Overview:
Shown here is a 92-nucleotide sequence from Tepidibacillus fermentans, a member of the family "Glycine riboswitch aptamer". This family represents the bacterial glycine riboswitch.
RNA sequence: AUGAAGAUAAAAGGAGAGACUACAUGGGUAGCGCCGAAGGAGCAAGCCUUUCAUAAGGUGAAUCUCUCAGGCAAAAGUACUUUUAUUGGACG
Numbered sequence: 001a002u003g004a005a006g007a008u009a010a011a012a013g014g015a016g017a018g019a020c021u022a023c024a025u026g027g028g029u030a031g032c033g034c035c036g037a038a039g040g041a042g043c044a045a046g047c048c049u050u051u052c053a054u055a056a057g058g059u060g061a062a063u064c065u066c067u068c069a070g071g072c073a074a075a076a077g078u079a080c081u082u083u084u085a086u087u088g089g090a091c092g
Stems, first nucleotide, its partner, number of pairs: 006087008020031004033072003036068002040066003046059002